[Rfam]
Shown here is a 95-nucleotide RNA from Propithecus coquereli, a member of the family "Y RNA". Taxonomically the source falls in Propithecus (Eukaryota, Dipnotetrapodomorpha, Euarchontoglires, Strepsirrhini). A search with the family's covariance model found it, with a score of 42 bits.
RNA sequence: GGCUGGUCCGAUGGUAGCAGUUUAUCAGAACUUACUAACAUUAGUGUCACUAAAGUUGGUAUUCAACCCCCCACUGCUAAAUUUGACUGAUAAAA
Numbered sequence: 001g002g003c004u005g006g007u008c009c010g011a012u013g014g015u016a017g018c019a020g021u022u023u024a025u026c027a028g029a030a031c032u033u034a035c036u037a038a039c040a041u042u043a044g045u046g047u048c049a050c051u052a053a054a055g056u057u058g059g060u061a062u063u064c065a066a067c068c069c070c071c072c073a074c075u076g077c078u079a080a081a082u083u084u085g086a087c088u089g090a091u092a093a094a095a
Base pairs, nucleotide, nucleotide: 002091004089005088006087007086008085010084011083015079016078017077018076019075020074021073033061034060035059037057038056
Y RNAs are components of the Ro ribonucleoprotein particle (Ro RNP), in association with Ro60 and La proteins. The Y RNAs and Ro60 and La proteins are well conserved, but the function of the Ro RNP is not known. In humans the RNA component can be one of four small RNAs -- hY1, hY3, hY4 and hY5. These small RNAs are predicted to fold into a conserved secondary structure containing three stem structures. The largest of the four, hY1, contains an additional hairpin. This family includes a significant number of annotated pseudogenes and the model is expected to discriminate poorly between real and Y RNA related pseudogenes. The family has 104 seed sequences and 26,986 matches in Rfam 15.1.